A member of the RNA family "Small nucleolar RNA SNORD2" from Strongylus vulgaris, 72 nucleotides long. NCBI's taxonomy places the organism under Eukaryota, Protostomia, Chromadorea, Rhabditina, Strongylus. By type it is a C/D-box small nucleolar RNA. It scores 37 bits against the family's covariance model.

[Rfam]
RNA sequence: CCGCGCGAUGAAUGUUUACCAUCUUUCGGGGCAUAAGUCUACUGAUGAUAGCAUAACCAUUGCUGAGCGCGG
Number, nucleotide and partner (000 for none) at each position: 001c072002c071003g070004c069005g068006c067007g000008a000009u000010g000011a000012a000013u000014g000015u000016u000017u000018a000019c000020c000021a000022u000023c000024u000025u000026u000027c000028g000029g000030g000031g000032c000033a000034u000035a000036a000037g000038u000039c000040u000041a000042c000043u000044g000045a000046u000047g000048a000049u000050a000051g000052c000053a000054u000055a000056a000057c000058c000059a000060u000061u000062g000063c000064u000065g000066a000067g006068c005069g004070c003071g002072g001